Shown here is a 126-nucleotide RNA sequence from Nomascus leucogenys, a member of the family "Small nucleolar RNA SNORA40". On this family, see Ofengand and Bakin, J Mol Biol 1997: "Mapping to nucleotide resolution of pseudouridine residues in large subunit ribosomal RNAs from representative eukaryotes, prokaryotes, archaebacteria, mitochondria and chloroplasts". The organism belongs to Nomascus, within Eukaryota. Rfam 15.1 lists 2,550 matches to the family in 517 species. Rfam describes the family as follows. The snoRNA ACA 40 belongs to the H/ACA family of snoRNAs and guides the pseudouridylation of 28S rRNA subunit at position U4565. The match comes from Rfam's covariance-model search (75 bits). The family's RNA type in Rfam is H/ACA-box small nucleolar RNA.
Nucleotides: 126
Stems, first nucleotide, its partner, number of pairs: 001050001003048002006045001008043001013038004020034002026031001065120002068117005078105010
Number, partner (000 for none) and nucleotide at each position: 001050a002000g003048u004047u005000c006045c007000u008043u009000g010000g011000a012000a013038g014037u015036u016035a017000a018000a019000g020034g021033u022000u023000a024000a025000g026031c027000u028000u029000a030000a031026g032000g033021a034020c035016u036015g037014a038013u039000u040000c041000a042000a043008a044000g045006g046000c047004a048003g049000g050001u051000g052000c053000a054000a055000a056000a057000a058000a059000u060000a061000a062000a063000c064000c065120c066119u067000c068117u069116u070115u071114u072113g073000u074000a075000a076000c077000c078105c079104a080103g081102a082101a083100c084099u085098c086097a087096u088000u089000u090000u091000u092000c093000a094000a095000u096087a097086u098085g099084a100083g101082u102081u103080u104079u105078g106000a107000u108000a109000c110000a111000u112000a113072u114071a115070a116069g117068a118000a119066g120065g121000a122000a123000g124000g125000a126000c